mir-72 microRNA precursor family: a 66-nucleotide RNA sequence from Ascaris suum.
RNA sequence: ACCAGGCAAGAUGUUGGCAUAGCUGAACGAAGCUUCGGAUUCAGCCGUGCUACAUAAGGCCAUGCU
Number, nucleotide and partner (000 for none) at each position: 001a000002c000003c000004a000005g061006g060007c059008a000009a000010g000011a055012u054013g053014u052015u000016g051017g050018c049019a000020u000021a000022g045023c044024u043025g042026a041027a000028c000029g000030a000031a000032g000033c000034u000035u000036c000037g000038g000039a000040u000041u026042c025043a024044g023045c022046c000047g000048u000049g018050c017051u016052a014053c013054a012055u011056a000057a000058g000059g007060c006061c005062a000063u000064g000065c000066u000
Rfam's curators put it in the seed alignment. Clan: mir-31 microRNA precursor family. Gene Ontology terms of the family: RISC complex and miRNA-mediated post-transcriptional gene silencing.